[Rfam]
RNA sequence: AUCCCAUGUUGAGGGCAACGCCGGAGUAAGUCCUUGUAUCUCUCAUAAGCUUCAUAGAACGAUUCAUUGGGUCCUUGCUUGAAAGAAGAAAUAUCUAAUUGAAGCU
Dot-bracket structure: (.(.((..................................................(..(..........)..).........................))..).)
RNA: Plant small nucleolar RNA R71
Organism: Dioscorea zingiberensis